Background:
Shown here is a 281-nucleotide sequence from Waltiozyma pijperi, a member of the family "Small nucleolar RNA snR191". By type it is an H/ACA-box small nucleolar RNA. The match comes from Rfam's covariance-model search (93 bits). On this family, see Badis et al., RNA 2003: "A snoRNA that guides the two most conserved pseudouridine modifications within rRNA confers a growth advantage in yeast". Pairs were carried over by alignment from the consensus structure, which was predicted with WAR.
[Rfam]
Nucleotides: 281
Base pairs, nucleotide, nucleotide: 003089004088005087006086007085019076020075021074022073023072025070027068028067031054032052101193102192103191104190105189106188110147112145113144115142116141118136119135120134122132123131124130150180151179156172157171158170159169160168161167162166197275198274199273200272202270203269204268205267213260214259215258216256218252219251221249223242224241225240226238227237228236229235
Number, partner (000 for none) and nucleotide at each position: 001000a002000c003089c004088c005087a006086a007085a008000g009000u010000u011000c012000u013000u014000u015000g016000u017000c018000a019076g020075g021074g022073c023072a024000u025070u026000a027068a028067u029000c030000c031054u032052u033000c034000u035000u036000c037000c038000a039000a040000u041000u042000c043000u044000a045000u046000u047000g048000g049000c050000u051000g052032a053000a054031a055000c056000u057000a058000u059000u060000c061000u062000c063000a064000a065000u066000g067028a068027u069000c070025a071000u072023u073022g074021u075020c076019u077000g078000u079000u080000a081000c082000a083000a084000c085007u086006u087005u088004g089003g090000a091000a092000g093000a094000u095000u096000u097000a098000u099000u100000g101193u102192u103191a104190u105189c106188c107000g108000c109000c110147u111000c112145c113144a114000u115142u116141u117000g118136c119135u120134g121000u122132c123131c124130c125000g126000u127000u128000c129000u130124g131123g132122g133000u134120c135119a136118g137000u138000c139000g140000g141116a142115a143000c144113u145112g146000u147110g148000a149000u150180g151179c152000u153000u154000u155000u156172g157171g158170u159169a160168u161167c162166g163000u164000u165000c166162u167161g168160a169159u170158g171157c172156u173000g174000a175000u176000u177000u178000u179151g180150c181000u182000c183000a184000c185000u186000u187000a188106g189105g190104g191103u192102a193101a194000c195000u196000g197275a198274a199273g200272g201000g202270u203269c204268u205267u206000a207000u208000g209000a210000g211000u212000u213260g214259a215258a216256c217000u218252c219251u220000g221249a222000a223242g224241a225240u226238g227237g228236a229235a230000u231000u232000u233000u234000u235229u236228u237227c238226u239000u240225g241224u242223u243000u244000u245000u246000a247000u248000u249221u250000g251219a252218g253000g254000a255000u256216g257000c258215u259214u260213c261000u262000u263000a264000g265000u266000a267205a268204a269203g270202a271000c272200c273199c274198u275197u276000a277000c278000a279000u280000c281000u